[Rfam]
Source information
This 101-nucleotide RNA sequence from Bacillus sp. FJAT-18017 belongs to the Rfam family "SAM riboswitch aptamer (S box leader)". The base pairs follow the family's consensus structure, which is taken from published work. The match comes from Rfam's covariance-model search (68 bits). The source organism's lineage runs through Bacteria, Bacillati, Bacilli, Caryophanales and Bacillus.
RNA sequence: ACAUUAUCAAGAGUGAACGAGAGAUCUGGCUCAAUGACUUCACAGCAACCUGCUCAGCAAGGUGCUCCUACCAGCAAGGCUGCUGCCUUGACUGAUGAAAA
Numbered sequence: 001a002c003a004u005u006a007u008c009a010a011g012a013g014u015g016a017a018c019g020a021g022a023g024a025u026c027u028g029g030c031u032c033a034a035u036g037a038c039u040u041c042a043c044a045g046c047a048a049c050c051u052g053c054u055c056a057g058c059a060a061g062g063u064g065c066u067c068c069u070a071c072c073a074g075c076a077a078g079g080c081u082g083c084u085g086c087c088u089u090g091a092c093u094g095a096u097g098a099a100a101a
Stems, first nucleotide, its partner, number of pairs: 004098005013043005021032003026074004044066004049062002051059003070093001075090006